A member of the RNA family "ylbH leader" from Guptibacillus hwajinpoensis, 117 nucleotides long.
Rfam links the family to the GO term regulation of gene expression.
The literature on the family includes a 2004 paper in Proc Natl Acad Sci U S A by Barrick et al., "New RNA motifs suggest an expanded scope for riboswitches in bacterial genetic control".
The family's RNA type in Rfam is cis-regulatory leader.
This family is a putative regulatory RNA structure that is found upstream of the ylbH gene in B. subtilis and related low GC Gram-positive bacteria.
RNA sequence: CAAAAAAAAUACCCGCAGGAUAUACUUCCUGCGGGUGCCUUAAGCCGUUAAGCUAAGGCAAUGGGAGAGGAGAAACCGGAGGAAGAACUUAUGGGGAAACGUAAGUCUUCUCCGUGG
Numbered sequence: 001c002a003a004a005a006a007a008a009a010u011a012c013c014c015g016c017a018g019g020a021u022a023u024a025c026u027u028c029c030u031g032c033g034g035g036u037g038c039c040u041u042a043a044g045c046c047g048u049u050a051a052g053c054u055a056a057g058g059c060a061a062u063g064g065g066a067g068a069g070g071a072g073a074a075a076c077c078g079g080a081g082g083a084a085g086a087a088c089u090u091a092u093g094g095g096g097a098a099a100c101g102u103a104a105g106u107c108u109u110c111u112c113c114g115u116g117g
Base pairs, nucleotide, nucleotide: 011036012035013034014033015032016031017030018029019028038064039063041061043054044053045052077114078113079112080111082110083109084108085107087106088105089104090103091102
Annotation: The match comes from Rfam's covariance-model search (89 bits). Lineage of the source: Bacteria > Bacillati > Bacillota > Bacilli > Guptibacillus. The pairing is the family consensus, mapped onto this sequence.